[Rfam]
RNA: FMN riboswitch aptamer (RFN element)
RNA sequence: GAAUUCCUUUGGGGCAGGGUGCAAUUCCCGACCGACGGUGAUAAAUAGUGUAACUAUUUUCAGUCCGUGACCCGGAGCACGAGUCGUGUGAAGGUGGAUUUGGUGAAAUUCCAAAGCCGACAGUUAAAGUCUGGAUGGGAAAAGGAAAAG
Numbered sequence: 001g002a003a004u005u006c007c008u009u010u011g012g013g014g015c016a017g018g019g020u021g022c023a024a025u026u027c028c029c030g031a032c033c034g035a036c037g038g039u040g041a042u043a044a045a046u047a048g049u050g051u052a053a054c055u056a057u058u059u060u061c062a063g064u065c066c067g068u069g070a071c072c073c074g075g076a077g078c079a080c081g082a083g084u085c086g087u088g089u090g091a092a093g094g095u096g097g098a099u100u101u102g103g104u105g106a107a108a109u110u111c112c113a114a115a116g117c118c119g120a121c122a123g124u125u126a127a128a129g130u131c132u133g134g135a136u137g138g139g140a141a142a143a144g145g146a147a148a149a150g
Stems, first nucleotide, its partner, number of pairs: 004147007017029003031130002033119002035068004063117002072094002099115005121133003